[Rfam]
RNA: Actinobacteria sRNA Ms_IGR-7
RNA sequence: CAGAAGUGCCUUGCCGAUCGUGCGUGCUGGAAGCCUAGAGAACUCCCAUCAUCGCAGGUCGCAAGGCACUUCCUCGUUUCUCGGAAGGCCAUCCACAGGCAUCAAGCCGGUGGAUCCGG
Numbered sequence: 001c002a003g004a005a006g007u008g009c010c011u012u013g014c015c016g017a018u019c020g021u022g023c024g025u026g027c028u029g030g031a032a033g034c035c036u037a038g039a040g041a042a043c044u045c046c047c048a049u050c051a052u053c054g055c056a057g058g059u060c061g062c063a064a065g066g067c068a069c070u071u072c073c074u075c076g077u078u079u080c081u082c083g084g085a086a087g088g089c090c091a092u093c094c095a096c097a098g099g100c101a102u103c104a105a106g107c108c109g110g111u112g113g114a115u116c117c118g119g
Stems, first nucleotide, its partner, number of pairs: 003072011015061003019057001021056004025051002028048001030046001032044002099117001101115003105111001